Nucleotides: 125
Base pairs, nucleotide, nucleotide: 015093016092017091018090020088021087022086023085024084025083027081028080029079030078031077032076033075035073036072037071038070041055056067058065059064097119098118099117100116101115102114103113104112105111
Number, partner (000 for none) and nucleotide at each position: 001000c002000a003000c004000g005000c006000a007000u008000g009000a010000a011000u012000g013000c014000u015093g016092c017091u018090g019000u020088u021087u022086u023085c024084c025083g026000c027081u028080u029079c030078u031077u032076u033075u034000u035073u036072u037071a038070c039000u040000u041055u042000a043000g044000c045000g046000c047000c048000u049000g050000a051000u052000u053000u054000c055041a056067g057000g058065a059064g060000g061000c062000u063000u064059c065058u066000g067056c068000g069000c070038g071037u072036a073035a074000g075033a076032g077031a078030a079029g080028a081027a082000a083025c084024g085023g086022a087021a088020a089000a090018u091017a092016g093015c094000g095000c096000c097119a098118a099117a100116g101115c102114c103113u104112c105111c106000c107000u108000c109000g110000c111105g112104g113103a114102g115101g116100c117099u118098u119097u120000u121000u122000u123000u124000u125000u
Notes:
This 125-nucleotide RNA from Chimaeribacter arupi belongs to the Rfam family "Phenylalanine leader peptide". Rfam 15.1 lists 379 matches to the family in 290 species. The match comes from Rfam's covariance-model search (82 bits). The source organism's lineage runs through Bacteria, Pseudomonadota, Gammaproteobacteria, Enterobacterales and Chimaeribacter. By type it is a cis-regulatory leader. The family's consensus secondary structure was predicted with CMfinder.